[Rfam]
RNA: MIR5070 microRNA precursor family
RNA sequence: CAGGGUACCGGUUGAUUCUCCUUAGUUCAACCAAAUGAACUAAAUUUCAAAAUAACAUAACUUUUUGGAAAAUUAGUUCAUUUGUUUGAACUAAGCAGGGUCAACGGGUACCCUG
Dot-bracket structure: .((((((((.(((((((((.((((((((((.((((((((((((.............................)))))))))))).)))))))))).))))))))).)))))))).